[Rfam]
RNA sequence: UUGUUUGCAGGUGUAGCAUCUUCAAGAUUCACAUGCAAAUGCACGGUGGUGAAUGGUGAUUAUAGUAACGUACUCUCUUCAACCCCCCACCCCCUUUCUUCUCUUCCUAAUUUCAUUACCAAAGUUCCUUGAAAGUGAGAAUCUUGAUGAUGCUGCAUCGGCAAUAAA
Numbered sequence: 001u002u003g004u005u006u007g008c009a010g011g012u013g014u015a016g017c018a019u020c021u022u023c024a025a026g027a028u029u030c031a032c033a034u035g036c037a038a039a040u041g042c043a044c045g046g047u048g049g050u051g052a053a054u055g056g057u058g059a060u061u062a063u064a065g066u067a068a069c070g071u072a073c074u075c076u077c078u079u080c081a082a083c084c085c086c087c088c089a090c091c092c093c094c095u096u097u098c099u100u101c102u103c104u105u106c107c108u109a110a111u112u113u114c115a116u117u118a119c120c121a122a123a124g125u126u127c128c129u130u131g132a133a134a135g136u137g138a139g140a141a142u143c144u145u146g147a148u149g150a151u152g153c154u155g156c157a158u159c160g161g162c163a164a165u166a167a168a
Base pairs, nucleotide, nucleotide: 010159011158012157013156014155015154016153017152018151019150020149022147023146024145025144026143027142028141029140030139032137033136
Dot-bracket structure: .........(((((((((((.(((((((((.((......................................................................................................)).))))))))).))))))))))).........